[Rfam]
RNA: U1 spliceosomal RNA
RNA sequence: CUACUUACCUUGACGGGGUCAAUGGGCAAUCAACAAGGCUCAUGGCCUAGGUUGGUGACCUCUAUUGUACUUUAGAGAGGUGCUCGCCUAAGAUCGAUCCAAGUCAUUGAGCUUACGUUAUAAUUUGUGACAGCAGAGACUUGCGUUCGCACAACCCUUAC
Numbered sequence: 001c002u003a004c005u006u007a008c009c010u011u012g013a014c015g016g017g018g019u020c021a022a023u024g025g026g027c028a029a030u031c032a033a034c035a036a037g038g039c040u041c042a043u044g045g046c047c048u049a050g051g052u053u054g055g056u057g058a059c060c061u062c063u064a065u066u067g068u069a070c071u072u073u074a075g076a077g078a079g080g081u082g083c084u085c086g087c088c089u090a091a092g093a094u095c096g097a098u099c100c101a102a103g104u105c106a107u108u109g110a111g112c113u114u115a116c117g118u119u120a121u122a123a124u125u126u127g128u129g130a131c132a133g134c135a136g137a138g139a140c141u142u143g144c145g146u147u148c149g150c151a152c153a154a155c156c157c158u159u160a161c
Base pairs, nucleotide, nucleotide: 012119013118014117015116016048017047018046019045020044021043023042024041025040026039027038049089050088051087053086055083056082057081059079061077062075063074091114092113094110095109096108098106136159137158138157142153143152145150